[Rfam]
RNA sequence: AUUUAGAUUUUCUAGGGUUCCGUAAUAUAUAAAUUAGUCUGGUCCGAGAGAAAACACGGUAAUUAUACCGGACACGGAAGGAGAAAAGCCUAGGAGGA
Numbered sequence: 001a002u003u004u005a006g007a008u009u010u011u012c013u014a015g016g017g018u019u020c021c022g023u024a025a026u027a028u029a030u031a032a033a034u035u036a037g038u039c040u041g042g043u044c045c046g047a048g049a050g051a052a053a054a055c056a057c058g059g060u061a062a063u064u065a066u067a068c069c070g071g072a073c074a075c076g077g078a079a080g081g082a083g084a085a086a087a088g089c090c091u092a093g094g095a096g097g098a
Stems, first nucleotide, its partner, number of pairs: 008054005015045002020042002022039001023036004057070005073093001075096001079091003
The record is a 98-nucleotide RNA sequence from Sebaldella termitidis, which matches "Guanidine-I riboswitch aptamer" in Rfam. Pairs were carried over by alignment from the consensus structure.